[Rfam]
RNA sequence: GGCGCGCAGACGGGAGAACCGCAGCGGAGCGGAAUCACCUCGCUCCAACCGGUGCCGAAGGAGCAACCGCCCCGGAAACUCUCAGGCCAAAGGGACCGCCUGCGCAGU
Number, nucleotide and partner (000 for none) at each position: 001g000002g000003c000004g000005c000006g103007c102008a101009g100010a000011c098012g097013g096014g000015a000016g000017a000018a000019c052020c051021g050022c000023a000024g000025c000026g000027g000028a000029g000030c000031g000032g000033a000034a000035u000036c000037a000038c000039c000040u000041c000042g000043c000044u000045c000046c000047a000048a000049c000050c021051g020052g019053u000054g087055c086056c085057g083058a082059a000060g000061g081062a080063g079064c000065a000066a000067c075068c074069g000070c000071c000072c000073c000074g068075g067076a000077a000078a000079c063080u062081c061082u058083c057084a000085g056086g055087c054088c000089a000090a000091a000092g000093g000094g000095a000096c013097c012098g011099c000100c009101u008102g007103c006104g000105c000106a000107g000108u000
RNA: Glycine riboswitch aptamer
Organism: Phaeobacter gallaeciensis